[Rfam]
RNA sequence: UGGACAGAUUAUUGUAUUCGACUGUAUCCACGGCGUGAAACAGGGGAUUACACUGUUUUUAAACAGAAGUAAAACCAUUAACAUAAUAGACUCCU
Numbered sequence: 001u002g003g004a005c006a007g008a009u010u011a012u013u014g015u016a017u018u019c020g021a022c023u024g025u026a027u028c029c030a031c032g033g034c035g036u037g038a039a040a041c042a043g044g045g046g047a048u049u050a051c052a053c054u055g056u057u058u059u060u061a062a063a064c065a066g067a068a069g070u071a072a073a074a075c076c077a078u079u080a081a082c083a084u085a086a087u088a089g090a091c092u093c094c095u
Base pairs, nucleotide, nucleotide: 002094003093004092009089010088011087012086013085014084015083017081018080020079021078024075027073030070031069035064036063037059038058039057040056041055042054043053

A member of the RNA family "MIR6152 microRNA precursor family" from Nicotiana attenuata, 95 nucleotides long. The match comes from Rfam's covariance-model search (80 bits). Rfam 15.1 lists 5,807 matches to the family in 3 species. Gene Ontology terms of the family: RISC complex and miRNA-mediated post-transcriptional gene silencing.